[Rfam]
RNA sequence: GGCAUUAAGGUGGGUGGAAUAAUAUAACAAUUCACUCUGUUGUUAUAGUAUUCCACCUACCCUGAUUCC
Numbered sequence: 001g002g003c004a005u006u007a008a009g010g011u012g013g014g015u016g017g018a019a020u021a022a023u024a025u026a027a028c029a030a031u032u033c034a035c036u037c038u039g040u041u042g043u044u045a046u047a048g049u050a051u052u053c054c055a056c057c058u059a060c061c062c063u064g065a066u067u068c069c
Stems, first nucleotide, its partner, number of pairs: 004066004009061009019051003023047009
Overview:
This 69-nucleotide sequence from Cyprinus carpio belongs to the Rfam family "mir-2985 microRNA precursor family". On this family, see Stefl et al., Cell 2010: "The solution structure of the ADAR2 dsRBM-RNA complex reveals a sequence-specific readout of the minor groove". The family has 8 seed sequences and 2,000 matches in Rfam 15.1. Rfam links the family to the GO terms RISC complex and miRNA-mediated post-transcriptional gene silencing. The organism belongs to Cyprinus carpio, within Eukaryota. RNAs can be post-transcriptional modified, in micro RNAs (miRNA) editing of pre-mRNA is a common process. The base pairs follow the family's consensus structure, which was predicted with RNAalifold.